This 86-nucleotide RNA sequence from Maritimibacter alkaliphilus belongs to the Rfam family "Singlet oxygen resistance RNA X". On this family, see Peng et al., RNA Biol 2016: "Regulation of a polyamine transporter by the conserved 3' UTR-derived sRNA SorX confers resistance to singlet oxygen and organic hydroperoxides in Rhodobacter sphaeroides". The family has 8 seed sequences and 528 matches in Rfam 15.1. SorX (RSs2461)like SorY is a singlet oxygen induced sRNA that counteracts oxidative stress by targeting mRNA for a transporter in Rhodobacter. It also has an impact on resistance against organic hydroperoxides. It targets SD sequence of potA mRNA via an aSD sequence. The aSD sequence and some neighbouring nucleotides are identical to the one of SorY (targets takP mRNA). Rfam links the family to the GO term response to photooxidative stress. The family's RNA type in Rfam is small RNA. NCBI's taxonomy places the organism under Bacteria, Alphaproteobacteria, Roseobacteraceae, Maritimibacter, Maritimibacter alkaliphilus.
RNA sequence: CCCCCUCGAAGCUGGUCAUCGAGACUUCUCUGGCCAGUUUCACCUCCCUGUUGGACUUAGGCCGGGCCUCGUGCCCGGUCUUUUUU
Numbered sequence: 001c002c003c004c005c006u007c008g009a010a011g012c013u014g015g016u017c018a019u020c021g022a023g024a025c026u027u028c029u030c031u032g033g034c035c036a037g038u039u040u041c042a043c044c045u046c047c048c049u050g051u052u053g054g055a056c057u058u059a060g061g062c063c064g065g066g067c068c069u070c071g072u073g074c075c076c077g078g079u080c081u082u083u084u085u086u
Base pairs, nucleotide, nucleotide: 008041009040010039011038012037013036014035015034016033017032018031060080061079062078063077064076065075066074067073